Annotation
Rfam assigns this 348-nucleotide RNA from Megasphaera cerevisiae to the family "Bacterial RNase P class A". The base pairs follow the family's consensus structure, which is taken from published work. The source organism's lineage runs through Bacteria, Bacillati, Bacillota, Veillonellaceae and Megasphaera cerevisiae. Rfam describes the family as follows. Ribonuclease P (RNase P) is a ubiquitous endoribonuclease, found in archaea, bacteria and eukarya as well as chloroplasts and mitochondria.

RNA sequence: UGAGUAGGAAACGCAAUCGCUGAGCCAUAUGGCUGAGAGGAAAGUCCGAGCUCCAUAGGGCAGGAUGCCGGAUAACGUCCGGCGAAGGUGACUUUAGGGAUAGUGCCACAGAAAUGUGUACCGCCACGCAAGUGGUAAGGGUGGAACGGUGCGGUAAGAGCGCACCAGCAGUAAGGUGACUUACUGGCUAGGUAAACCCCAUCUGGAGCAAGACCGAAUAGGGGAGGGAUGAGGCGGCCCGCCGACCUUCCGGGUUGUGUCGCUUGAACAUGUCAGCAAUGGCAUGUCUAGAUAGAUGAUUGCGUCUGCGCAGGCAGAACAAAACUCGGCUUAUUGAGUACUCAUCAC
Numbered sequence: 001u002g003a004g005u006a007g008g009a010a011a012c013g014c015a016a017u018c019g020c021u022g023a024g025c026c027a028u029a030u031g032g033c034u035g036a037g038a039g040g041a042a043a044g045u046c047c048g049a050g051c052u053c054c055a056u057a058g059g060g061c062a063g064g065a066u067g068c069c070g071g072a073u074a075a076c077g078u079c080c081g082g083c084g085a086a087g088g089u090g091a092c093u094u095u096a097g098g099g100a101u102a103g104u105g106c107c108a109c110a111g112a113a114a115u116g117u118g119u120a121c122c123g124c125c126a127c128g129c130a131a132g133u134g135g136u137a138a139g140g141g142u143g144g145a146a147c148g149g150u151g152c153g154g155u156a157a158g159a160g161c162g163c164a165c166c167a168g169c170a171g172u173a174a175g176g177u178g179a180c181u182u183a184c185u186g187g188c189u190a191g192g193u194a195a196a197c198c199c200c201a202u203c204u205g206g207a208g209c210a211a212g213a214c215c216g217a218a219u220a221g222g223g224g225a226g227g228g229a230u231g232a233g234g235c236g237g238c239c240c241g242c243c244g245a246c247c248u249u250c251c252g253g254g255u256u257g258u259g260u261c262g263c264u265u266g267a268a269c270a271u272g273u274c275a276g277c278a279a280u281g282g283c284a285u286g287u288c289u290a291g292a293u294a295g296a297u298g299a300u301u302g303c304g305u306c307u308g309c310g311c312a313g314g315c316a317g318a319a320c321a322a323a324a325c326u327c328g329g330c331u332u333a334u335u336g337a338g339u340a341c342u343c344a345u346c347a348c
Stems, first nucleotide, its partner, number of pairs: 001344006010335002012304007020037002023034004042332003046329005051208004058240004063204005068082005083097001084095004098199002103197002105193003121140002123136005148166006168188001169186007212261003215257001222251006233243003268287008